[Rfam]
Nucleotides: 088
Base pairs, nucleotide, nucleotide: 005040007038008037011033012032013031014030015029017027018026019025020024063081064080065079066078067077068076069075
Number, partner (000 for none) and nucleotide at each position: 001000c002000u003000u004000g005040g006000u007038g008037g009000u010000g011033g012032c013031a014030c015029u016000u017027c018026c019025c020024u021000a022000c023000c024020a025019g026018g027017g028000u029015g030014g031013u032012g033011u034000g035000a036000g037008u038007u039000u040005c041000u042000g043000u044000a045000c046000c047000u048000a049000a050000c051000a052000u053000a054000a055000a056000u057000u058000c059000a060000u061000a062000a063081a064080g065079c066078c067077c068076g069075c070000u071000g072000a073000g074000u075069g076068u077067g078066g079065g080064c081063u082000u083000u084000u085000u086000c087000a088000u
This 88-nucleotide RNA from Photobacterium damselae belongs to the Rfam family "Tryptophan operon leader". A reference for the family is Kolter and Yanofsky (1982), "Attenuation in amino acid biosynthetic operons", Annu Rev Genet. The source organism's lineage runs through Bacteria, Gammaproteobacteria, Vibrionales, Photobacterium damselae and Photobacterium damselae subsp. damselae. The base pairs follow the family's consensus structure, which is taken from published work.